The record is a 102-nucleotide RNA from Bacillus sp. NRRL B-14911, which matches "Purine riboswitch aptamer" in Rfam.
[Rfam]
RNA sequence: AUAAUUUCAUAACGAUACACUCAUAUAAUCGCGGGAAUAUGGCCUGCAAGUUUCUACCGGACUGCCGUUAACAGUCUGACUAUGGGUGAGCAAUGGGAGGCA
Numbered sequence: 001a002u003a004a005u006u007u008c009a010u011a012a013c014g015a016u017a018c019a020c021u022c023a024u025a026u027a028a029u030c031g032c033g034g035g036a037a038u039a040u041g042g043c044c045u046g047c048a049a050g051u052u053u054c055u056a057c058c059g060g061a062c063u064g065c066c067g068u069u070a071a072c073a074g075u076c077u078g079a080c081u082a083u084g085g086g087u088g089a090g091c092a093a094u095g096g097g098a099g100g101c102a
Base pairs, nucleotide, nucleotide: 018088019087020086021085022084023083024082025081029049031047032046033045034044035043058078059077060076061075062074063073064072

Its family is annotated with purine nucleobase biosynthetic process in the Gene Ontology. Taxonomically the source falls in Bacillus (Bacteria, Bacillota, Bacilli, Bacillaceae). The base pairs follow the family's consensus structure, which is taken from published work.